Rfam assigns this 82-nucleotide RNA sequence from Jaculus jaculus to the family "mir-3473 microRNA precursor family". Lineage of the source: Eukaryota > Deuterostomia > Chordata > Glires > Jaculus. The match comes from Rfam's covariance-model search (74 bits). The base pairs follow the family's consensus structure, which was predicted with RNAalifold.
RNA sequence: ACCGCUAAGCCAUCUCUCCAGCCCUAAUUUGUCAUUUUAAGUUAAAAACUAAAGUGCAGGGCUGGAGAGAUGGCUUAGCGGU
Numbered sequence: 001a002c003c004g005c006u007a008a009g010c011c012a013u014c015u016c017u018c019c020a021g022c023c024c025u026a027a028u029u030u031g032u033c034a035u036u037u038u039a040a041g042u043u044a045a046a047a048a049c050u051a052a053a054g055u056g057c058a059g060g061g062c063u064g065g066a067g068a069g070a071u072g073g074c075u076u077a078g079c080g081g082u
Base pairs, nucleotide, nucleotide: 002081003080004079005078006077007076008075009074010073011072012071013070014069015068016067017066018065019064020063021062022061023060024059
Dot-bracket structure: .(((((((((((((((((((((((..................................))))))))))))))))))))))).